The family of this 101-nucleotide RNA from Kineococcus radiotolerans is "TPP riboswitch aptamer (THI element)". Its family is annotated with thiamine pyrophosphate binding in the Gene Ontology. Lineage of the source: Bacteria > Bacillati > Actinomycetota > Kineosporiaceae > Kineococcus radiotolerans.
RNA sequence: GCUCGCGACACGGGGUGCUGCGCGCGGAUCGCGCAGCUGAGAUCACACCCGUCGAACCUGACGCAGGUAAUGCUGACGAAGGGAUGUCACGGCAUGUCGGC
Numbered sequence: 001g002c003u004c005g006c007g008a009c010a011c012g013g014g015g016u017g018c019u020g021c022g023c024g025c026g027g028a029u030c031g032c033g034c035a036g037c038u039g040a041g042a043u044c045a046c047a048c049c050c051g052u053c054g055a056a057c058c059u060g061a062c063g064c065a066g067g068u069a070a071u072g073c074u075g076a077c078g079a080a081g082g083g084a085u086g087u088c089a090c091g092g093c094a095u096g097u098c099g100g101c
Stems, first nucleotide, its partner, number of pairs: 007088004011051004016045001017037008057082003064075003